[Rfam]
RNA: skipping-rope RNA
RNA sequence: AUGCUCCGAGGAUAGAACGGGCAGCUAUCGCCAAUGUGGAGAUGCGUGAGUGCCGACACGCCGGAGCAA
Numbered sequence: 001a002u003g004c005u006c007c008g009a010g011g012a013u014a015g016a017a018c019g020g021g022c023a024g025c026u027a028u029c030g031c032c033a034a035u036g037u038g039g040a041g042a043u044g045c046g047u048g049a050g051u052g053c054c055g056a057c058a059c060g061c062c063g064g065a066g067c068a069a
Stems, first nucleotide, its partner, number of pairs: 002068007011029005020054004031039001044061005